[Rfam]
RNA sequence: CGAAUUUGUCGGGCCUACCUCCUCCCAGGUUUCCGACGAAUAGGUCAGCGCCUACCUCCUCCCAGACGCUGGCCACCAAUACGACACCCGCCGGACCUCCUCCCCCGGCGGGUGUUGUUU
Numbered sequence: 001c002g003a004a005u006u007u008g009u010c011g012g013g014c015c016u017a018c019c020u021c022c023u024c025c026c027a028g029g030u031u032u033c034c035g036a037c038g039a040a041u042a043g044g045u046c047a048g049c050g051c052c053u054a055c056c057u058c059c060u061c062c063c064a065g066a067c068g069c070u071g072g073c074c075a076c077c078a079a080u081a082c083g084a085c086a087c088c089c090g091c092c093g094g095a096c097c098u099c100c101u102c103c104c105c106c107g108g109c110g111g112g113u114g115u116u117g118u119u120u
Stems, first nucleotide, its partner, number of pairs: 007038003011034003014029002043074008052065001084115011
RNA: Alphaproteobacterial ar14